[Rfam]
RNA sequence: GUGCCAAAACAUCAAGAGUAAGGGAAAUUGCGUCCAGGUUUAAUACCCCGGCCGACCACUCUGAUGGUGUAAAUUUUUGAAAGGGAAAGAUUUCGAUCGAGGUGGCCUGCCUACUUUGUAGGCUGCACGGUCGAAAACUGCCCU
Numbered sequence: 001g002u003g004c005c006a007a008a009a010c011a012u013c014a015a016g017a018g019u020a021a022g023g024g025a026a027a028u029u030g031c032g033u034c035c036a037g038g039u040u041u042a043a044u045a046c047c048c049c050g051g052c053c054g055a056c057c058a059c060u061c062u063g064a065u066g067g068u069g070u071a072a073a074u075u076u077u078u079g080a081a082a083g084g085g086a087a088a089g090a091u092u093u094c095g096a097u098c099g100a101g102g103u104g105g106c107c108u109g110c111c112u113a114c115u116u117u118g119u120a121g122g123c124u125g126c127a128c129g130g131u132c133g134a135a136a137a138c139u140g141c142c143c144u
Base pairs, nucleotide, nucleotide: 004023005022008019032053034051035050037048038047055068056067057066058065082144083143084142085141088139089138091136092135093134094133098130102126103125104124106122107121108120109119110118
A member of the RNA family "U12 minor spliceosomal RNA" from Varroa destructor, 144 nucleotides long. It is annotated as a spliceosomal small nuclear RNA. The organism belongs to Varroa, within Eukaryota. Its family is annotated with mRNA branch site recognition, U12 snRNP and pre-mRNA branch point binding in the Gene Ontology. The pairing is the family consensus, mapped onto this sequence. The literature on the family includes a 1997 paper in Trends Biochem Sci by Tarn and Steitz, "Pre-mRNA splicing: the discovery of a new spliceosome doubles the challenge".